[Rfam]
RNA sequence: AACAUUCGAAUAUGCAUACCGUAGACAGUAGGUGCCUUAAACGGGCUUAAUUUCCUACCGAGGUGUUAUGAUAAAGUGUUUGUGCUGUAAUCUUGCCGUUCUGGCAAUGAAGACAAUGAACAGACCAUCAUGGCCUUCGCUACAACGUUUGAAGCGGAGGCCUUUCUCAUGCAUCGA
Numbered sequence: 001a002a003c004a005u006u007c008g009a010a011u012a013u014g015c016a017u018a019c020c021g022u023a024g025a026c027a028g029u030a031g032g033u034g035c036c037u038u039a040a041a042c043g044g045g046c047u048u049a050a051u052u053u054c055c056u057a058c059c060g061a062g063g064u065g066u067u068a069u070g071a072u073a074a075a076g077u078g079u080u081u082g083u084g085c086u087g088u089a090a091u092c093u094u095g096c097c098g099u100u101c102u103g104g105c106a107a108u109g110a111a112g113a114c115a116a117u118g119a120a121c122a123g124a125c126c127a128u129c130a131u132g133g134c135c136u137u138c139g140c141u142a143c144a145a146c147g148u149u150u151g152a153a154g155c156g157g158a159g160g161c162c163u164u165u166c167u168c169a170u171g172c173a174u175c176g177a
Stems, first nucleotide, its partner, number of pairs: 028058005034046003132162010
Ribosomal protein L10 leader: a 177-nucleotide RNA sequence from Paenibacillus phyllosphaerae. Lineage of the source: Bacteria > Bacillota > Caryophanales > Paenibacillaceae > Paenibacillus. The family's consensus secondary structure was predicted with CMfinder. This family is a putative r-protein leader autoregulatory structure found in B. subtilis and other low-GC Gram-positive bacteria. It is annotated as a cis-regulatory leader.